[Rfam]
RNA sequence: AUCAGCGGGGAAAGAAGACCCUGUUGAGCUUCACUCUAGUCCGGCUUUGUGAAAUGGCUCGGGAGGUGUAGCAUAAGUGGGAGCUUCGGCGACAGUGAAAUACCACUACUCCCGAUGUCGUUUUACUUAUUCCGUUAUGUUGAAAUUCACUUUUGGGUGUUUUUGACUUAAGGCUUUGCCGAUCUAGGCGGAAGACAUAGCCAGAUGGGGAGUUUGACUGGGGCGGUACAUCUGUUAAAAGAUAACGCAGAUGUCCUAAGGCAAGCUCAAUGAGGACAGAAAUCUCAUGUAGACCAAAAGGGGAAAAGCUUGCUUGAUUUUGAUUUUCAGUACGAAUACAAACUGUGAAAGCAUGGCCUAUCGAUCCUUUAGAACUGUGAAAUUUACAGCUAGAGGUGUCAGAAAAGUUACCACAGGGAUAACUGGCUUGUGGCAGCCAAGCGUUCAUAGCGACGUUGCUUUUUGAUCCUUCGAUGUCGGCUCUUCCUAUCAUUGAGAUGCAGAUGUCUCAAAGUGUCGGAUUGUUCACCCGCUAAUAGGGAACGUGAGCUGGGUUUAGACCGUCGUGAGACAGGUUAGUUUUACCCUACUGAUGACU
Numbered sequence: 001a002u003c004a005g006c007g008g009g010g011a012a013a014g015a016a017g018a019c020c021c022u023g024u025u026g027a028g029c030u031u032c033a034c035u036c037u038a039g040u041c042c043g044g045c046u047u048u049g050u051g052a053a054a055u056g057g058c059u060c061g062g063g064a065g066g067u068g069u070a071g072c073a074u075a076a077g078u079g080g081g082a083g084c085u086u087c088g089g090c091g092a093c094a095g096u097g098a099a100a101u102a103c104c105a106c107u108a109c110u111c112c113c114g115a116u117g118u119c120g121u122u123u124u125a126c127u128u129a130u131u132c133c134g135u136u137a138u139g140u141u142g143a144a145a146u147u148c149a150c151u152u153u154u155g156g157g158u159g160u161u162u163u164u165g166a167c168u169u170a171a172g173g174c175u176u177u178g179c180c181g182a183u184c185u186a187g188g189c190g191g192a193a194g195a196c197a198u199a200g201c202c203a204g205a206u207g208g209g210g211a212g213u214u215u216g217a218c219u220g221g222g223g224c225g226g227u228a229c230a231u232c233u234g235u236u237a238a239a240a241g242a243u244a245a246c247g248c249a250g251a252u253g254u255c256c257u258a259a260g261g262c263a264a265g266c267u268c269a270a271u272g273a274g275g276a277c278a279g280a281a282a283u284c285u286c287a288u289g290u291a292g293a294c295c296a297a298a299a300g301g302g303g304a305a306a307a308g309c310u311u312g313c314u315u316g317a318u319u320u321u322g323a324u325u326u327u328c329a330g331u332a333c334g335a336a337u338a339c340a341a342a343c344u345g346u347g348a349a350a351g352c353a354u355g356g357c358c359u360a361u362c363g364a365u366c367c368u369u370u371a372g373a374a375c376u377g378u379g380a381a382a383u384u385u386a387c388a389g390c391u392a393g394a395g396g397u398g399u400c401a402g403a404a405a406a407g408u409u410a411c412c413a414c415a416g417g418g419a420u421a422a423c424u425g426g427c428u429u430g431u432g433g434c435a436g437c438c439a440a441g442c443g444u445u446c447a448u449a450g451c452g453a454c455g456u457u458g459c460u461u462u463u464u465g466a467u468c469c470u471u472c473g474a475u476g477u478c479g480g481c482u483c484u485u486c487c488u489a490u491c492a493u494u495g496a497g498a499u500g501c502a503g504a505u506g507u508c509u510c511a512a513a514g515u516g517u518c519g520g521a522u523u524g525u526u527c528a529c530c531c532g533c534u535a536a537u538a539g540g541g542a543a544c545g546u547g548a549g550c551u552g553g554g555u556u557u558a559g560a561c562c563g564u565c566g567u568g569a570g571a572c573a574g575g576u577u578a579g580u581u582u583u584a585c586c587c588u589a590c591u592g593a594u595g596a597c598u
Base pairs, nucleotide, nucleotide: 001594002593003592004591005590008588009587010586012583013582020417021416022415023414025413026412027409028408029407030406031405033213034212035211036210040205041204043202044201045200046199049126050125051124052123053122054121055120056119057118058117059115060114061113062112063111064110065109076107077106078105079104080103083090084089130193131192132191133190134189140186142184143183148159149158150157151156172180173179174178216229217227218226219225230252231251232250233249234248235247255356256355261313262312263311264310265309266308267293268292270288271287272286273285274284275283294303295302318342319341320340323337324336325335326334344353345352346351367395368394369393370392371391372390375389376388377387378386426467428465430464432460433459434458435457436456437455441451442450478553479551480550481549482548483545484542485541486540487539488538491516492515494511495510496509497508498507499506518532519531520530522528559577560576561575562574563572564571565570
Dot-bracket structure: (((((..(((.((......((((.(((((((.((((...((.((((..(((((((((((((((((..........(((((..((....))............))))).))))))).))))))))))...(((((.....(.((....((((....))))............(((...)))..)).)..))))).....)))).))....))))..((((.....))).)((((((...........))))))..((....((((((((.((((((.......))))))...))((......))....))))))....(((..((((.......))))..))).(((....))).))..........((((((..((((.......)))))))))).........)))))..))))))........(.(.(.((((((...((.......))...))))))...)).)..........(((((((((((..((.((((((......))))))...)).(((.(.....).))).....)))))..)..)))).).....(((((((....))).))))....))..))).)))))....
Background: Shown here is a 598-nucleotide part of an RNA from Babesia microti, a member of the family "Eukaryotic large subunit ribosomal RNA". The base pairs follow the family's consensus structure, which is taken from published work.